[Rfam]
RNA sequence: CCUGUUAUAUGACUAACAGUAGCCUAGGGAUAGUGCGAGACUGGUAACGGUCUGGUGCGGAGCUUCCUGACAAUGUACCCCUUGAGGAGUAGCAAGGUUAAUGUUUAUCGUGAGGUAACAUUAAGUAAUGGCAAGUAGCAUGUCAUGAGGGGC
Dot-bracket structure: .((((((......)))))).......((((..((((.((((((....)))))).))))......))))...........(((((........)))))((((......((....)).....))))...((((((.......)))))).......
Numbered sequence: 001c002c003u004g005u006u007a008u009a010u011g012a013c014u015a016a017c018a019g020u021a022g023c024c025u026a027g028g029g030a031u032a033g034u035g036c037g038a039g040a041c042u043g044g045u046a047a048c049g050g051u052c053u054g055g056u057g058c059g060g061a062g063c064u065u066c067c068u069g070a071c072a073a074u075g076u077a078c079c080c081c082u083u084g085a086g087g088a089g090u091a092g093c094a095a096g097g098u099u100a101a102u103g104u105u106u107a108u109c110g111u112g113a114g115g116u117a118a119c120a121u122u123a124a125g126u127a128a129u130g131g132c133a134a135g136u137a138g139c140a141u142g143u144c145a146u147g148a149g150g151g152g153c
Stems, first nucleotide, its partner, number of pairs: 002019006027068004033058004038053006080097005098124004108115002128146006